[Rfam]
c-di-GMP-II-GAG riboswitch aptamer: an 85-nucleotide sequence. For this family Rfam cites "Bioinformatic analysis of riboswitch structures uncovers variant classes with altered ligand specificity" (Weinberg et al., Proc Natl Acad Sci U S A, 2017). Rfam links the family to the GO terms regulation of gene expression and cyclic-di-GMP binding. Clan: c-di-GMP_II riboswitch clan. Pairs were carried over by alignment from the consensus structure, which is taken from published work. Rfam's curators put it in the seed alignment.
RNA sequence: GCCUUCUCCGGAGGCGAUGAAGCCUGAUCCCUUACUCGGGCGCUUGGGACAGGUGGAGCCAGUAGCGCGACCGGCCGGAAGAUUC
Dot-bracket structure: (..((.(((((.(((......(((((.((........[[[[[[[..)).)))))...)))...]]]]]..]]..))))).))..)